[Rfam]
RNA sequence: UUUCCUCAGCCUUACUCCAGGGGCUCUUUAAACCCGUAGGUGCCUUGGCAUUGCCUGAGGAUAUAUUGAAACUAUGCUCAAUUCCCUCCCCAAGAGGACUCUUGCCUUUCUUUGGGGCCUACAAUUUGAGCACACAUC
Numbered sequence: 001u002u003u004c005c006u007c008a009g010c011c012u013u014a015c016u017c018c019a020g021g022g023g024c025u026c027u028u029u030a031a032a033c034c035c036g037u038a039g040g041u042g043c044c045u046u047g048g049c050a051u052u053g054c055c056u057g058a059g060g061a062u063a064u065a066u067u068g069a070a071a072c073u074a075u076g077c078u079c080a081a082u083u084c085c086c087u088c089c090c091c092a093a094g095a096g097g098a099c100u101c102u103u104g105c106c107u108u109u110c111u112u113u114g115g116g117g118c119c120u121a122c123a124a125u126u127u128g129a130g131c132a133c134a135c136a137u138c
Stems, first nucleotide, its partner, number of pairs: 003061007011053001017048006023041002026039002075132003079128002088117006095111004

The record is a 138-nucleotide RNA from Varanus komodoensis, which matches "Small nucleolar RNA SNORA49" in Rfam. Rfam links the family to the GO terms RNA processing and nucleolus. About the family: The snoRNA ACA49 has no identified RNA target. NB genomic sequence 1-nt different from published. The family has 21 seed sequences and 722 matches in Rfam 15.1. Lineage of the source: Eukaryota > Sauria > Anguimorpha > Varanoidea > Varanus. Rfam classes the family as an H/ACA-box small nucleolar RNA.